[Rfam]
RNA sequence: UGUAUCAGUGAUGAUCACUUGGCUCCCUCUACUGAUACCCAGUGAGGAUAACAGCCAUCGUUACCCAAUUAGAACUGAGAUACA
Numbered sequence: 001u002g003u004a005u006c007a008g009u010g011a012u013g014a015u016c017a018c019u020u021g022g023c024u025c026c027c028u029c030u031a032c033u034g035a036u037a038c039c040c041a042g043u044g045a046g047g048a049u050a051a052c053a054g055c056c057a058u059c060g061u062u063a064c065c066c067a068a069u070u071a072g073a074a075c076u077g078a079g080a081u082a083c084a
Stems, first nucleotide, its partner, number of pairs: 001084006
Rfam assigns this 84-nucleotide RNA from Conger conger to the family "Small nucleolar RNA SNORD100". The family has 26 seed sequences and 838 matches in Rfam 15.1. Rfam classes the family as a C/D-box small nucleolar RNA. Pairs were carried over by alignment from the consensus structure, which was predicted with RNAalifold. The literature on the family includes a 2002 paper in Mol Cell Biol by Galardi et al., "Purified box C/D snoRNPs are able to reproduce site-specific 2'-O-methylation of target RNA in vitro".